[Rfam]
RNA: MIR5565 microRNA precursor family
Organism: Miscanthus lutarioriparius
RNA sequence: GUAUGUGUAUUCACUUCGAUCUACAUGUGUUGGGGUGGAGUGGAGUGGAACUUAGUUUAAUUCCAUUCCAAUCCACUUCAACACAUGUGGAUUAAGAUGAAUACGUGC
Numbered sequence: 001g002u003a004u005g006u007g008u009a010u011u012c013a014c015u016u017c018g019a020u021c022u023a024c025a026u027g028u029g030u031u032g033g034g035g036u037g038g039a040g041u042g043g044a045g046u047g048g049a050a051c052u053u054a055g056u057u058u059a060a061u062u063c064c065a066u067u068c069c070a071a072u073c074c075a076c077u078u079c080a081a082c083a084c085a086u087g088u089g090g091a092u093u094a095a096g097a098u099g100a101a102u103a104c105g106u107g108c
Base pairs, nucleotide, nucleotide: 004107005106006105007104008103009102010101011100012099013098016095018093019092020091021090022089023088024087025086026085027084028083029082030081031080032079035076036075037074038073039072041070042069043068045066046065047064